[Rfam]
RNA sequence: AAGGCUCUGUAGCUCCCGAACGCCCAAGUACCACUUGGGACAUUCAUGUAGGGAGAACGGAGCCUU
Numbered sequence: 001a002a003g004g005c006u007c008u009g010u011a012g013c014u015c016c017c018g019a020a021c022g023c024c025c026a027a028g029u030a031c032c033a034c035u036u037g038g039g040a041c042a043u044u045c046a047u048g049u050a051g052g053g054a055g056a057a058c059g060g061a062g063c064c065u066u
Base pairs, nucleotide, nucleotide: 001066002065003064004063005062006061007060008059009058010057013055014054015053016052017051023039024038025037026036027035028034029033
RNA: DUF3800-VIII RNA
Organism: Hymenobacter sp. PAMC 26628